[Rfam]
RNA sequence: GUACGAUAAUAGCAAACCCGUUGAAAGAUGGGGACGCAAAGCUUCAGGGGCUAAUGAAUUUGCCGAAGACGCAAAUGCCGAUGCCAGCCAGCUGCCGAU
Numbered sequence: 001g002u003a004c005g006a007u008a009a010u011a012g013c014a015a016a017c018c019c020g021u022u023g024a025a026a027g028a029u030g031g032g033g034a035c036g037c038a039a040a041g042c043u044u045c046a047g048g049g050g051c052u053a054a055u056g057a058a059u060u061u062g063c064c065g066a067a068g069a070c071g072c073a074a075a076u077g078c079c080g081a082u083g084c085c086a087g088c089c090a091g092c093u094g095c096c097g098a099u
Base pairs, nucleotide, nucleotide: 012037013036017032018031019030020029021028022027040093041092042091043090047089048088049085050084051083056079
c-di-GMP-I riboswitch aptamer: a 99-nucleotide RNA from Paenibacillus tyrphae. The match comes from Rfam's covariance-model search (65 bits). Gene Ontology term of the family: cyclic-di-GMP binding. Lineage of the source: Bacteria > Bacillati > Caryophanales > Paenibacillaceae > Paenibacillus.